[Rfam]
RNA sequence: AAUUCUAUUUGUAGGAACAAAGAUAAAUAGAUCUAUUCUAUACCUAAUAAGUAUUAAUACACAAUGUGG
Dot-bracket structure: ..((.(.(((....))).).))....................(.(.....(((....))).....).).
Numbered sequence: 001a002a003u004u005c006u007a008u009u010u011g012u013a014g015g016a017a018c019a020a021a022g023a024u025a026a027a028u029a030g031a032u033c034u035a036u037u038c039u040a041u042a043c044c045u046a047a048u049a050a051g052u053a054u055u056a057a058u059a060c061a062c063a064a065u066g067u068g069g
Stems, first nucleotide, its partner, number of pairs: 003022002006019001008017003043068001045066001051060003